Shown here is an 85-nucleotide RNA sequence from Alkalibacter rhizosphaerae, a member of the family "c-di-GMP-I riboswitch aptamer". Rfam links the family to the GO term cyclic-di-GMP binding. The family's consensus secondary structure is taken from published work.

RNA sequence: AUUUGAAAAAGGUAAACUUGGUGAAAGCCAAGGACACAAAGCAUGAAGUCUAAGGUCGAAAGACUAUGACGGUUCAGCUGCCAAA
Numbered sequence: 001a002u003u004u005g006a007a008a009a010a011g012g013u014a015a016a017c018u019u020g021g022u023g024a025a026a027g028c029c030a031a032g033g034a035c036a037c038a039a040a041g042c043a044u045g046a047a048g049u050c051u052a053a054g055g056u057c058g059a060a061a062g063a064c065u066a067u068g069a070c071g072g073u074u075c076a077g078c079u080g081c082c083a084a085a
Base pairs, nucleotide, nucleotide: 012037013036017032018031019030020029021028022027040079041078042077045075046074047073048070049069050068055064056063057062